[Rfam]
RNA: Wingless localisation element 3 (WLE3)
RNA sequence: UGCUUUCAUGUUGCUUUGGCCGGGCUCAAAGCAGAUGGAAAG
Number, nucleotide and partner (000 for none) at each position: 001u000002g000003c042004u041005u040006u038007c037008a036009u035010g000011u033012u000013g032014c000015u030016u029017u028018g027019g026020c000021c000022g000023g000024g000025c000026u019027c018028a017029a016030a015031g000032c013033a011034g000035a009036u008037g007038g006039a000040a005041a004042g003